[Rfam]
Shown here is a 167-nucleotide RNA from Brachypodium distachyon, a member of the family "MIR408 microRNA precursor family".
RNA sequence: GAUUGGAGAGAGGGGAGGAGACAGGGAUGGAGCAGAGCAUGGGAUGGGGCUAACAGCAAAAUUACGUUCGUUAUUACUUCCACUAUAUGCUGUGAGAGCUGCUGCUGCUGUGUUGUUGCUCCCUCCCCUGCACUGCCUCUUCCCUGGCUCCCCUGCAUCACCCCCCC
Numbered sequence: 001g002a003u004u005g006g007a008g009a010g011a012g013g014g015g016a017g018g019a020g021a022c023a024g025g026g027a028u029g030g031a032g033c034a035g036a037g038c039a040u041g042g043g044a045u046g047g048g049g050c051u052a053a054c055a056g057c058a059a060a061a062u063u064a065c066g067u068u069c070g071u072u073a074u075u076a077c078u079u080c081c082a083c084u085a086u087a088u089g090c091u092g093u094g095a096g097a098g099c100u101g102c103u104g105c106u107g108c109u110g111u112g113u114u115g116u117u118g119c120u121c122c123c124u125c126c127c128c129u130g131c132a133c134u135g136c137c138u139c140u141u142c143c144c145u146g147g148c149u150c151c152c153c154u155g156c157a158u159c160a161c162c163c164c165c166c167c
Stems, first nucleotide, its partner, number of pairs: 018150003022146006030138001032136004037131003041127001043126001047121004

The family has 8 seed sequences and 299 matches in Rfam 15.1. For this family Rfam cites "High throughput approaches reveal splicing of primary microRNA transcripts and tissue specific expression of mature microRNAs in Vitis vinifera" (Mica et al., BMC Genomics, 2009). The match comes from Rfam's covariance-model search (69 bits).